[Rfam]
RNA sequence: GUAGGAUCUGGUAGCGUUGAUCUGUAACUCAAGCGAGUACUGUUUGUUUGCAAAACUCGUAGUGAUGUAUAGCUUUGUCUCAAUGCGUUAUUUCGGAUGUCCUAGCUGGGCCAGACAUCAACAUGUGUCAAUUAUGGUAGCAUAAUUAGUACAGGUUGUAUAAUGAGGAGCGUUCGGCUGAGGAGCGAAAGCUAGCAGGUCAAAGCCCCCGUGUCUGGUGGCAGCGGGAUAGCAUCUGAUAGUGUUGGGCUUGGUUGUAUUCACCUUGUGGCCAUACCAAACAAACUU
Numbered sequence: 001g002u003a004g005g006a007u008c009u010g011g012u013a014g015c016g017u018u019g020a021u022c023u024g025u026a027a028c029u030c031a032a033g034c035g036a037g038u039a040c041u042g043u044u045u046g047u048u049u050g051c052a053a054a055a056c057u058c059g060u061a062g063u064g065a066u067g068u069a070u071a072g073c074u075u076u077g078u079c080u081c082a083a084u085g086c087g088u089u090a091u092u093u094c095g096g097a098u099g100u101c102c103u104a105g106c107u108g109g110g111c112c113a114g115a116c117a118u119c120a121a122c123a124u125g126u127g128u129c130a131a132u133u134a135u136g137g138u139a140g141c142a143u144a145a146u147u148a149g150u151a152c153a154g155g156u157u158g159u160a161u162a163a164u165g166a167g168g169a170g171c172g173u174u175c176g177g178c179u180g181a182g183g184a185g186c187g188a189a190a191g192c193u194a195g196c197a198g199g200u201c202a203a204a205g206c207c208c209c210c211g212u213g214u215c216u217g218g219u220g221g222c223a224g225c226g227g228g229a230u231a232g233c234a235u236c237u238g239a240u241a242g243u244g245u246u247g248g249g250c251u252u253g254g255u256u257g258u259a260u261u262c263a264c265c266u267u268g269u270g271g272c273c274a275u276a277c278c279a280a281a282c283a284a285a286c287u288u
Stems, first nucleotide, its partner, number of pairs: 001040003004023005010017001028037003042286009054275001058268002062264003067260008077250004082246005093239008101228002105225004110219009119158004124153005130147007159165002167209002170206002176201004184193003
The family of this 288-nucleotide sequence from Intoshia linei is "Metazoan signal recognition particle RNA". The match comes from Rfam's covariance-model search (137 bits). NCBI's taxonomy places the organism under Eukaryota, Metazoa, Spiralia, Rhopaluridae, Intoshia. On this family, see Batey et al., J Mol Biol 2001: "Structural and energetic analysis of RNA recognition by a universally conserved protein from the signal recognition particle". Rfam describes the family as follows. The signal recognition particle (SRP) is a universally conserved ribonucleoprotein. It is involved in the co-translational targeting of proteins to membranes. The eukaryotic SRP consists of a 300-nucleotide 7S RNA and six proteins: SRPs 72, 68, 54, 19, 14, and 9.